This 183-nucleotide RNA from Trichonephila clavata belongs to the Rfam family "Wolbachia sRNA 46".
RNA sequence: UAAAUUGCACAGCAAAUGGUGUCAUUCCAGUGCUUGACACUGGAAUCCAGGAAUUUUGCUUAUAACUGAGCUGAUGAGCUAAAGGUAGUUGUCUUACGCUAAAACAAACGUUUUUAAUUAAGUUGCAUAGAAGCUGGAUCCCAGUGUCACGCACUGGGAUGACACCCUACUGGUGGCCCAAAC
Dot-bracket structure: ...........((.(....((((((((((((((.(((((((((.((((((...................................................................................)))))).))))))))).)))))))))))))).........).))......